[Rfam]
RNA sequence: AUGCCUUAAACUUAUGAGUAAGGAAAAUAACAAUUCAGGGUAACACCCGAGUCCUCAAUGCUAAUGAGACAAAUUAUUGAGCAGGUAAAGGCUGCUCCUGAGAGUGACCUGCCUACUUUGGGGGAUGCCUAGGUGUUGCAAUCUGCCCA
Numbered sequence: 001a002u003g004c005c006u007u008a009a010a011c012u013u014a015u016g017a018g019u020a021a022g023g024a025a026a027a028u029a030a031c032a033a034u035u036c037a038g039g040g041u042a043a044c045a046c047c048c049g050a051g052u053c054c055u056c057a058a059u060g061c062u063a064a065u066g067a068g069a070c071a072a073a074u075u076a077u078u079g080a081g082c083a084g085g086u087a088a089a090g091g092c093u094g095c096u097c098c099u100g101a102g103a104g105u106g107a108c109c110u111g112c113c114u115a116c117u118u119u120g121g122g123g124g125a126u127g128c129c130u131a132g133g134u135g136u137u138g139c140a141a142u143c144u145g146c147c148c149a
Stems, first nucleotide, its partner, number of pairs: 004023005033052004038047002054068004084147003089144003093140003098133002102130001104128003108124003112120001
Notes
Shown here is a 149-nucleotide RNA sequence from Jaculus jaculus, a member of the family "U12 minor spliceosomal RNA". The match comes from Rfam's covariance-model search (103 bits). Its Rfam clan is "U2 clan".